[Rfam]
RNA sequence: AGGAUGAGUGUGAUCUGGCUGUGACAUCUGUCACCUCAUUGAUCACCAAGGUUGAUUUGGCUGAUCUGGCUCACUAGGCAGGUGUUCCCUUAUUCCUUCAACGCUCUAUGUGCACUCAGAUCUCCCUGAUAGAGAUGGUACUGUUCAUCGGUCAAGGGUAUACUGUAGCUGUGCUUCCCUGCUAGAACCUCCAAAGAAGCUCAAACUCUAUUUGUAGGAGAAUGUAGGGUAGUCAAGCUUCCAAGACUGCAGACCCAACCAAGUGAGGUGCUGCAUGGGGCAGUUUGCCAUUGUUU
Numbered sequence: 001a002g003g004a005u006g007a008g009u010g011u012g013a014u015c016u017g018g019c020u021g022u023g024a025c026a027u028c029u030g031u032c033a034c035c036u037c038a039u040u041g042a043u044c045a046c047c048a049a050g051g052u053u054g055a056u057u058u059g060g061c062u063g064a065u066c067u068g069g070c071u072c073a074c075u076a077g078g079c080a081g082g083u084g085u086u087c088c089c090u091u092a093u094u095c096c097u098u099c100a101a102c103g104c105u106c107u108a109u110g111u112g113c114a115c116u117c118a119g120a121u122c123u124c125c126c127u128g129a130u131a132g133a134g135a136u137g138g139u140a141c142u143g144u145u146c147a148u149c150g151g152u153c154a155a156g157g158g159u160a161u162a163c164u165g166u167a168g169c170u171g172u173g174c175u176u177c178c179c180u181g182c183u184a185g186a187a188c189c190u191c192c193a194a195a196g197a198a199g200c201u202c203a204a205a206c207u208c209u210a211u212u213u214g215u216a217g218g219a220g221a222a223u224g225u226a227g228g229g230u231a232g233u234c235a236a237g238c239u240u241c242c243a244a245g246a247c248u249g250c251a252g253a254c255c256c257a258a259c260c261a262a263g264u265g266a267g268g269u270g271c272u273g274c275a276u277g278g279g280g281c282a283g284u285u286u287g288c289c290a291u292u293g294u295u296u
Base pairs, nucleotide, nucleotide: 001107002106003105005100006099007098008097010095013091017089018088023086024085025084026083027082028081029080030079031078032077036069037068038067041066042065043064044063046060047059168238169237170236174232175231177229178228179227180226181225182224189220190219191218192217195215197213198212199211261296262295263294265291267289268288269287270284271283272282273281274280
Notes: This 296-nucleotide RNA sequence from Scytalopus superciliaris belongs to the Rfam family "7SK RNA". By type it is a non-coding RNA gene. A search with the family's covariance model found it, with a score of 210 bits. For this family Rfam cites "Transcription: surprising role for an elusive small nuclear RNA" (Blencowe, Curr Biol, 2002). The family's consensus secondary structure is taken from published work.